[Rfam]
RNA sequence: AUAUGCCUGGCUCCCUGUAUGCCAUCUUCAGAGCCCACCGGUGUCCGGUGGCCUUCGUGGAUGGCGUAUGAGGAGCCAAGCAUAU
Numbered sequence: 001a002u003a004u005g006c007c008u009g010g011c012u013c014c015c016u017g018u019a020u021g022c023c024a025u026c027u028u029c030a031g032a033g034c035c036c037a038c039c040g041g042u043g044u045c046c047g048g049u050g051g052c053c054u055u056c057g058u059g060g061a062u063g064g065c066g067u068a069u070g071a072g073g074a075g076c077c078a079a080g081c082a083u084a085u
Stems, first nucleotide, its partner, number of pairs: 001085006008078007016070009027059001029057001